Overview
This 289-nucleotide sequence from Sciurus vulgaris belongs to the Rfam family "Mason-Pfizer monkey virus packaging signal".
[Rfam]
RNA sequence: GGGCACCCAACGGUGUGGCUUCGGAUAAGGGGGAAUUCGCGAGGGAAGAGGCGUGUAAGUGUUCGGACGAAGAAAAAAAAGUGAAAGUGAAAGUCAGUUCGACAAAGUUCACUGCUGGAGCCUGCCGCGCCGUUCUUAAAGGUACAGUAGCACCUAACUAUGGGACAAGAAUUAAGUAAGCAUAAAGCUUUUGUUAAGCAAUUAAAAGAAGCUUUAAAGACACGGGGAGUAAAGGUUAAGAGUAAUGAUCUUUUUAAGUUUUUUGACCUUAUUAAGGAAACCUGUCCGU
Numbered sequence: 001g002g003g004c005a006c007c008c009a010a011c012g013g014u015g016u017g018g019c020u021u022c023g024g025a026u027a028a029g030g031g032g033g034a035a036u037u038c039g040c041g042a043g044g045g046a047a048g049a050g051g052c053g054u055g056u057a058a059g060u061g062u063u064c065g066g067a068c069g070a071a072g073a074a075a076a077a078a079a080a081g082u083g084a085a086a087g088u089g090a091a092a093g094u095c096a097g098u099u100c101g102a103c104a105a106a107g108u109u110c111a112c113u114g115c116u117g118g119a120g121c122c123u124g125c126c127g128c129g130c131c132g133u134u135c136u137u138a139a140a141g142g143u144a145c146a147g148u149a150g151c152a153c154c155u156a157a158c159u160a161u162g163g164g165a166c167a168a169g170a171a172u173u174a175a176g177u178a179a180g181c182a183u184a185a186a187g188c189u190u191u192u193g194u195u196a197a198g199c200a201a202u203u204a205a206a207a208g209a210a211g212c213u214u215u216a217a218a219g220a221c222a223c224g225g226g227g228a229g230u231a232a233a234g235g236u237u238a239a240g241a242g243u244a245a246u247g248a249u250c251u252u253u254u255u256a257a258g259u260u261u262u263u264u265g266a267c268c269u270u271a272u273u274a275a276g277g278a279a280a281c282c283u284g285u286c287c288g289u
Base pairs, nucleotide, nucleotide: 006032007031008030014027015026037051038050040048094142095141098139099138110132113129114128115127117125148168150166153164154163155162156161173216174215175214176212177211223265224264225263226262227261228260229259230258233251234250235249236248237247238246274289276287277286278285
The match comes from Rfam's covariance-model search (155 bits). By type it is a cis-regulatory element. The organism belongs to Sciurus, within Eukaryota. The base pairs follow the family's consensus structure, which was predicted with PFOLD. Gene Ontology term of the family: viral genome packaging.